A member of the RNA family "Actinomyces-1 RNA", 112 nucleotides long. It is one of the family's seed sequences. Rfam classes the family as a small RNA. The base pairs follow the family's consensus structure, which is taken from published work.
[Rfam]
RNA sequence: ACCGCCGCCGGACGGAAACCGGUCGCGAGGGUUGGGGAGCCUGAUGACCGAUCGGCUUUCGAGGUCACCCGAGUUGAUAGGGAACUCGGCAUGAGCCGCUCUGGCGAAGGAG
Numbered sequence: 001a002c003c004g005c006c007g008c009c010g011g012a013c014g015g016a017a018a019c020c021g022g023u024c025g026c027g028a029g030g031g032u033u034g035g036g037g038a039g040c041c042u043g044a045u046g047a048c049c050g051a052u053c054g055g056c057u058u059u060c061g062a063g064g065u066c067a068c069c070c071g072a073g074u075u076g077a078u079a080g081g082g083a084a085c086u087c088g089g090c091a092u093g094a095g096c097c098g099c100u101c102u103g104g105c106g107a108a109g110g111a112g
Stems, first nucleotide, its partner, number of pairs: 006106007013061004019055007029042005063097003066093002070088005